[Rfam]
RNA sequence: UACGGCUCGAAAGAUUGAAGGGUGAGAAAUUUUGCCGGAUAGCCCAUACACGCAGCAAUGGCGUAAGACGUAUUGUGCAAUCAGGCAUUUAGCGGGCUGCGGGUUGCAGCCUGGACGAUAAAACGGGAUUGGUUCACCUGGUAUUCUACUGGCGGUUCCCCCCCUGAAAAGCGCUGUUUUUCCAUAUGUAAAACAGGCUACCGAGUAUUUGCACCCCUUUAGCUACUGACAACCGGGAGGUUGACGGCUUUGCGAUGAGACACGGGGUCAUCGGUUCCUCACGUCCAGCGUUACUUUGCCCGCAGCUUUGUCACUAA
Numbered sequence: 001u002a003c004g005g006c007u008c009g010a011a012a013g014a015u016u017g018a019a020g021g022g023u024g025a026g027a028a029a030u031u032u033u034g035c036c037g038g039a040u041a042g043c044c045c046a047u048a049c050a051c052g053c054a055g056c057a058a059u060g061g062c063g064u065a066a067g068a069c070g071u072a073u074u075g076u077g078c079a080a081u082c083a084g085g086c087a088u089u090u091a092g093c094g095g096g097c098u099g100c101g102g103g104u105u106g107c108a109g110c111c112u113g114g115a116c117g118a119u120a121a122a123a124c125g126g127g128a129u130u131g132g133u134u135c136a137c138c139u140g141g142u143a144u145u146c147u148a149c150u151g152g153c154g155g156u157u158c159c160c161c162c163c164c165u166g167a168a169a170a171g172c173g174c175u176g177u178u179u180u181u182c183c184a185u186a187u188g189u190a191a192a193a194c195a196g197g198c199u200a201c202c203g204a205g206u207a208u209u210u211g212c213a214c215c216c217c218u219u220u221a222g223c224u225a226c227u228g229a230c231a232a233c234c235g236g237g238a239g240g241u242u243g244a245c246g247g248c249u250u251u252g253c254g255a256u257g258a259g260a261c262a263c264g265g266g267g268u269c270a271u272c273g274g275u276u277c278c279u280c281a282c283g284u285c286c287a288g289c290g291u292u293a294c295u296u297u298g299c300c301c302g303c304a305g306c307u308u309u310g311u312c313a314c315u316a317a
Stems, first nucleotide, its partner, number of pairs: 033087004038082002043077001045075002050071003055062002094308011112287006125163003134155002137152002170199003174196004179191002182188001200275005213268005227246002230243005
Rfam assigns this 317-nucleotide sequence from Erwinia sorbitola to the family "RNase E 5' UTR element".
NCBI's taxonomy places the organism under Bacteria, Pseudomonadati, Pseudomonadota, Erwiniaceae, Erwinia.
A reference for the family is Diwa et al. (2000), "An evolutionarily conserved RNA stem-loop functions as a sensor that directs feedback regulation of RNase E gene expression", Genes Dev.